[Rfam]
RNA sequence: UAGCUCUUUAAAAGCACUGGUUUUGGAUAGUUAAUCUACCUUGCCAGCCGUCAAAUAGAGCAAUAGAGAAAAUCUUGUUUUUGGGUGAGGUCCAGUUUUUAUUUAAAUUGGGUCUCAAUAACAUGAUGACAAAU
Numbered sequence: 001u002a003g004c005u006c007u008u009u010a011a012a013a014g015c016a017c018u019g020g021u022u023u024u025g026g027a028u029a030g031u032u033a034a035u036c037u038a039c040c041u042u043g044c045c046a047g048c049c050g051u052c053a054a055a056u057a058g059a060g061c062a063a064u065a066g067a068g069a070a071a072a073u074c075u076u077g078u079u080u081u082u083g084g085g086u087g088a089g090g091u092c093c094a095g096u097u098u099u100u101a102u103u104u105a106a107a108u109u110g111g112g113u114c115u116c117a118a119u120a121a122c123a124u125g126a127u128g129a130c131a132a133a134u
Stems, first nucleotide, its partner, number of pairs: 003061004014051002017047005026040001028038002081126003084122001086117006093110005
This 134-nucleotide RNA from Caenorhabditis bovis belongs to the Rfam family "Caenorhabditis snoRNA ceN82".
For this family Rfam cites "Systematic identification of non-coding RNA 2,2,7-trimethylguanosine cap structures in Caenorhabditis elegans" (Jia et al., BMC Mol Biol, 2007).
The source organism's lineage runs through Eukaryota, Opisthokonta, Protostomia, Ecdysozoa and Caenorhabditis.
The match comes from Rfam's covariance-model search (106 bits).